RNA sequence: AUAUAAACGUUGAAGAGAAAUAGUAAUUUGGUUGAUUUCUUUCAGAGAGGAGGCUCAAGGCUGUGAAGCUUCCAGAUAAACCAUUUGAAGCAGUCUCUGAGUUAUAAUCUCGAAUGAUGUAGAGAUUAUCGGGUUAUUCCGUUAUCAUUUGAAUUAAGGCGACCUUUAUGGUAAUUAGGGUGGUACCGCGGGUUUAUCUCGUCCCUAAG
Numbered sequence: 001a002u003a004u005a006a007a008c009g010u011u012g013a014a015g016a017g018a019a020a021u022a023g024u025a026a027u028u029u030g031g032u033u034g035a036u037u038u039c040u041u042u043c044a045g046a047g048a049g050g051a052g053g054c055u056c057a058a059g060g061c062u063g064u065g066a067a068g069c070u071u072c073c074a075g076a077u078a079a080a081c082c083a084u085u086u087g088a089a090g091c092a093g094u095c096u097c098u099g100a101g102u103u104a105u106a107a108u109c110u111c112g113a114a115u116g117a118u119g120u121a122g123a124g125a126u127u128a129u130c131g132g133g134u135u136a137u138u139c140c141g142u143u144a145u146c147a148u149u150u151g152a153a154u155u156a157a158g159g160c161g162a163c164c165u166u167u168a169u170g171g172u173a174a175u176u177a178g179g180g181u182g183g184u185a186c187c188g189c190g191g192g193u194u195u196a197u198c199u200c201g202u203c204c205c206u207a208a209g
Stems, first nucleotide, its partner, number of pairs: 007102002015097004026086001029083003038076003049073006105128007130141003162172003177206004188202005

The family of this 209-nucleotide sequence from Alkaliphilus peptidifermentans is "T-box leader". The source organism's lineage runs through Bacteria, Bacillati, Peptostreptococcales, Alkaliphilus and Alkaliphilus peptidifermentans. Rfam describes the family as follows. Uncharged tRNA acts as the effector for transcription antitermination of genes in the T-box leader family. T-boxes are found upstream of many aminoacyl-tRNA synthetase genes and some amino acid biosynthetic genes usually in Gram-positive bacteria. The anticodon of a specific tRNA base pairs to a specifier sequence within the T-box motif, and the NCCA acceptor tail of the tRNA base pairs to a conserved bulge in the T-box antiterminator hairpin. The family has 48 seed sequences and 19,395 matches in Rfam 15.1. The literature on the family includes a 1994 paper in J Bacteriol by Grundy et al., "Interaction between the acceptor end of tRNA and the T box stimulates antitermination in the Bacillus subtilis tyrS gene: a new role for the discriminator base".